[Rfam]
RNA sequence: AACGUUCAUCUCUUCUCGCGAUCUCUGUCUGGAUGGUGUGCAUUCUGAGGUUUUUCAGGUAUUGAGAAGGGACGGAAGUAGGGAAGUCGCCCGAAGGAACGCGCC
Numbered sequence: 001a002a003c004g005u006u007c008a009u010c011u012c013u014u015c016u017c018g019c020g021a022u023c024u025c026u027g028u029c030u031g032g033a034u035g036g037u038g039u040g041c042a043u044u045c046u047g048a049g050g051u052u053u054u055u056c057a058g059g060u061a062u063u064g065a066g067a068a069g070g071g072a073c074g075g076a077a078g079u080a081g082g083g084a085a086g087u088c089g090c091c092c093g094a095a096g097g098a099a100c101g102c103g104c105c
Stems, first nucleotide, its partner, number of pairs: 003101005009072010075102001081092003

This 105-nucleotide RNA from Neosynechococcus sphagnicola belongs to the Rfam family "Glutamine riboswitch aptamer (glnA leader)".
A reference for the family is Ames and Breaker (2011), "Bacterial aptamers that selectively bind glutamine", RNA Biol.
The organism belongs to Neosynechococcus sphagnicola, within Bacteria.